[Rfam]
RNA: Selenocysteine insertion sequence 1
Organism: Oryctolagus cuniculus
RNA sequence: CUGACAUUAUGAAGGCCUGUACUGAAGACAGUAAACUGUUAGUACAGACCAGAUACUUUUUGAC
Dot-bracket structure: .(.(.........((.(((((((.....(((....)))..))))))).))..........).).